[Rfam]
RNA sequence: CUGUUUGCUGCUGUGGCAUCAUCAAGAUUCACAGGCUCUUGUUGAUAAAACUCCGCUCGAUUCUGAGGGUUUCAGUGCUCGGAAGAGAGGUUGAAAGAGAGAUGAGAAUCUUGAUGAUGCUGCAUCGGCAAUAAA
Numbered sequence: 001c002u003g004u005u006u007g008c009u010g011c012u013g014u015g016g017c018a019u020c021a022u023c024a025a026g027a028u029u030c031a032c033a034g035g036c037u038c039u040u041g042u043u044g045a046u047a048a049a050a051c052u053c054c055g056c057u058c059g060a061u062u063c064u065g066a067g068g069g070u071u072u073c074a075g076u077g078c079u080c081g082g083a084a085g086a087g088a089g090g091u092u093g094a095a096a097g098a099g100a101g102a103u104g105a106g107a108a109u110c111u112u113g114a115u116g117a118u119g120c121u122g123c124a125u126c127g128g129c130a131a132u133a134a135a
Stems, first nucleotide, its partner, number of pairs: 010126001012124019032104002
RNA: mir-172 microRNA precursor family